[Rfam]
RNA sequence: UGAACUAAAAUUUGAAUGCAGUUGGAACGUUUGCCUACGUUGACCGCUAGGGGCGCUGUUCCAACUGCAAACAAACCACUUCGAUA
Numbered sequence: 001u002g003a004a005c006u007a008a009a010a011u012u013u014g015a016a017u018g019c020a021g022u023u024g025g026a027a028c029g030u031u032u033g034c035c036u037a038c039g040u041u042g043a044c045c046g047c048u049a050g051g052g053g054c055g056c057u058g059u060u061c062c063a064a065c066u067g068c069a070a071a072c073a074a075a076c077c078a079c080u081u082c083g084a085u086a
Stems, first nucleotide, its partner, number of pairs: 008080001011075004018068001020066010034052003039047002
A member of the RNA family "mir-2807 microRNA precursor family" from Bombyx mori, 86 nucleotides long.
A search with the family's covariance model found it, with a score of 55 bits.
Rfam links the family to the GO terms miRNA-mediated post-transcriptional gene silencing and RISC complex.